[Rfam]
RNA sequence: AAGGAGGAUAUGAGAGUUAGUAUUCCUGCUUGAUACCAUCUUCCUAGAUUUAAUGUGCCAUUUUUUCUUACCAAACUAUUAGAUAGUUUUGCUCUACGAGAAGUGGACUCUA
Numbered sequence: 001a002a003g004g005a006g007g008a009u010a011u012g013a014g015a016g017u018u019a020g021u022a023u024u025c026c027u028g029c030u031u032g033a034u035a036c037c038a039u040c041u042u043c044c045u046a047g048a049u050u051u052a053a054u055g056u057g058c059c060a061u062u063u064u065u066u067c068u069u070a071c072c073a074a075a076c077u078a079u080u081a082g083a084u085a086g087u088u089u090u091g092c093u094c095u096a097c098g099a100g101a102a103g104u105g106g107a108c109u110c111u112a
Stems, first nucleotide, its partner, number of pairs: 001031003005027001006025006056105003071091001073089001075087003
Shown here is a 112-nucleotide RNA from Zizania palustris, a member of the family "Small nucleolar RNA snoR104". Lineage of the source: Eukaryota > Streptophytina > Liliopsida > Petrosaviidae > Zizania. A reference for the family is Marker et al. (2002), "Experimental RNomics: identification of 140 candidates for small non-messenger RNAs in the plant Arabidopsis thaliana", Curr Biol. Gene Ontology terms of the family: RNA processing and nucleolus. Rfam classes the family as an H/ACA-box small nucleolar RNA.